Rfam assigns this 210-nucleotide sequence from Labrys okinawensis to the family "permuted transfer-messenger RNA". The base pairs follow the family's consensus structure, which is taken from published work. Bacterial tmRNA, also known as 10Sa RNA or SsrA, is named for its dual tRNA and mRNA-like properties. Its role is to liberate the mRNA from a stalled ribosome. To accomplish this part of the tmRNA is used as a reading frame that ends in a translation stop signal. The broken mRNA is replaced in the ribosome by the tmRNA and translation of the tmRNA leads to addition of a proteolysis tag to the incomplete protein enabling recognition by a protease. Recently a number of permuted tmRNA genes have been found encoded in two parts. tmRNAs have been identified in eubacteria and some chloroplasts but are absent from archaeal and eukaryote nuclear genomes. Taxonomically the source falls in Labrys (Bacteria, Pseudomonadota, Alphaproteobacteria, Hyphomicrobiales).

RNA sequence: GGCGAUAAAUGGUCAUCGUAAUAAACCUAUCGGACCCGGGGGCAGUACCCGGCGCCUCCACCAGAGCCCGUCAGGGCGGGCUGCGGCGGGGGCGAAACAGGAUCGACGAGGGUGUAAAGGGUGUGCUUUCGCUCGGCAUGGUUCCGCCGAUAUCGGGCCGUUUCAAUAGUUGCCAACGACAACUAUGCUCCGGUUGCGGUUGCCGCGUAA
Numbered sequence: 001g002g003c004g005a006u007a008a009a010u011g012g013u014c015a016u017c018g019u020a021a022u023a024a025a026c027c028u029a030u031c032g033g034a035c036c037c038g039g040g041g042g043c044a045g046u047a048c049c050c051g052g053c054g055c056c057u058c059c060a061c062c063a064g065a066g067c068c069c070g071u072c073a074g075g076g077c078g079g080g081c082u083g084c085g086g087c088g089g090g091g092g093c094g095a096a097a098c099a100g101g102a103u104c105g106a107c108g109a110g111g112g113u114g115u116a117a118a119g120g121g122u123g124u125g126c127u128u129u130c131g132c133u134c135g136g137c138a139u140g141g142u143u144c145c146g147c148c149g150a151u152a153u154c155g156g157g158c159c160g161u162u163u164c165a166a167u168a169g170u171u172g173c174c175a176a177c178g179a180c181a182a183c184u185a186u187g188c189u190c191c192g193g194u195u196g197c198g199g200u201u202g203c204c205g206c207g208u209a210a
Base pairs, nucleotide, nucleotide: 001133002132003131004130005129014123015122016121017120026112027111028110030109031108032107036052037051038050039049040048053094054093055092056091057090058089059088134149135148136147137146